[Rfam]
The family of this 66-nucleotide RNA from Diceros bicornis is "MAT2A 3'UTR stem loop F". The base pairs follow the family's consensus structure, which is taken from published work. It scores 55 bits against the family's covariance model. Rfam classes the family as a cis-regulatory element. A reference for the family is Parker et al. (2011), "New families of human regulatory RNA structures identified by comparative analysis of vertebrate genomes", Genome Res.
RNA sequence: CAUGGGGAAUGCUACCUUGGUUGGUGUGGUCCAGACAAGCCAGCUUGUUUACAAGCUUAUUCCACA
Dot-bracket structure: ..(((((.(.((.(.(..((((((((.....)......))))))).).).....)).).)))))..
Numbered sequence: 001c002a003u004g005g006g007g008a009a010u011g012c013u014a015c016c017u018u019g020g021u022u023g024g025u026g027u028g029g030u031c032c033a034g035a036c037a038a039g040c041c042a043g044c045u046u047g048u049u050u051a052c053a054a055g056c057u058u059a060u061u062c063c064a065c066a
Stems, first nucleotide, its partner, number of pairs: 003064005009058001011056002014049001016047001019045007026032001